[Rfam]
RNA sequence: CACCGGGGACGGCCCCGGCAUGCGAUCGUCAAUGUGCGGGACGGCCCGC
Numbered sequence: 001c002a003c004c005g006g007g008g009a010c011g012g013c014c015c016c017g018g019c020a021u022g023c024g025a026u027c028g029u030c031a032a033u034g035u036g037c038g039g040g041a042c043g044g045c046c047c048g049c
Stems, first nucleotide, its partner, number of pairs: 003018006036049005
The family of this 49-nucleotide RNA from Pseudomonas sp. M47T1 is "Guanidine-II riboswitch aptamer (mini-ykkC)". Its family is annotated with regulation of gene expression in the Gene Ontology. A search with the family's covariance model found it, with a score of 44 bits. NCBI's taxonomy places the organism under Bacteria, Pseudomonadota, Gammaproteobacteria, Pseudomonadales, Pseudomonas.